[Rfam]
RNA sequence: AAUGGCAGUGACGACUCAAAAAAUUCAAGCUCAACAGACCGGAUUGCAGGUUUCUCUCUCUAGAGAUGAUUACUUGCGUGUCGAUAAACCCGCUGAACUGAGCCUUU
Number, nucleotide and partner (000 for none) at each position: 001a107002a106003u000004g104005g103006c102007a000008g000009u000010g000011a000012c000013g000014a000015c000016u000017c000018a000019a000020a000021a000022a000023a000024u000025u000026c000027a000028a000029g000030c000031u000032c000033a000034a000035c000036a000037g000038a000039c000040c000041g000042g000043a000044u000045u000046g000047c000048a000049g000050g000051u000052u000053u000054c000055u000056c000057u000058c000059u000060c000061u000062a000063g000064a000065g000066a000067u000068g000069a000070u000071u000072a000073c000074u000075u000076g000077c000078g000079u000080g000081u000082c000083g000084a000085u000086a000087a000088a000089c000090c000091c000092g000093c000094u000095g000096a000097a000098c000099u000100g000101a000102g006103c005104c004105u000106u002107u001
About this RNA: Small nucleolar RNA Z107/R87: a 107-nucleotide RNA sequence. The match comes from Rfam's covariance-model search (90 bits).